RNA sequence: CUUACACAAUAACGCCGAGCUGCCGGUUCUAAGCCUGCUAUGCGCUAGCAUAUUGGGGAUGAACGGUACGCCGUGGCAAUAAUGCCACCGGGUUUAGCUGGAAACGGCUACACCUCCCCUAUUGGAAAGGUGUGCUAUGUUAAUUGAC
Numbered sequence: 001c002u003u004a005c006a007c008a009a010u011a012a013c014g015c016c017g018a019g020c021u022g023c024c025g026g027u028u029c030u031a032a033g034c035c036u037g038c039u040a041u042g043c044g045c046u047a048g049c050a051u052a053u054u055g056g057g058g059a060u061g062a063a064c065g066g067u068a069c070g071c072c073g074u075g076g077c078a079a080u081a082a083u084g085c086c087a088c089c090g091g092g093u094u095u096a097g098c099u100g101g102a103a104a105c106g107g108c109u110a111c112a113c114c115u116c117c118c119c120u121a122u123u124g125g126a127a128a129g130g131u132g133u134g135c136u137a138u139g140u141u142a143a144u145u146g147a148c
Stems, first nucleotide, its partner, number of pairs: 003142002012133005019071002024066001026064004034057003073088005090115004095110006116125002

Rfam assigns this 148-nucleotide sequence from Rheinheimera sp. D18 to the family "Molybdenum/Tungsten riboswitch aptamer (Moco RNA motif)". The literature on the family includes a 2008 paper in Mol Microbiol by Regulski et al., "in molybdenum cofactor and tungsten cofactor metabolism". Rfam links the family to the GO terms tungstate binding, molybdenum ion binding and regulation of gene expression. Lineage of the source: Bacteria > Pseudomonadota > Gammaproteobacteria > Chromatiaceae > Rheinheimera.